[Rfam]
RNA sequence: CGGGGGCACGAGGCAGACUCCCCGCCGGCCAAGGCGCCAUCCGUCCAAGUUCUGC
Numbered sequence: 001c002g003g004g005g006g007c008a009c010g011a012g013g014c015a016g017a018c019u020c021c022c023c024g025c026c027g028g029c030c031a032a033g034g035c036g037c038c039a040u041c042c043g044u045c046c047a048a049g050u051u052c053u054g055c
Base pairs, nucleotide, nucleotide: 001024002023003022004021005020006019013055014054015053016052017051033045034044035043036042

This 55-nucleotide sequence belongs to the Rfam family "chrB-b RNA". The family's RNA type in Rfam is cis-regulatory element.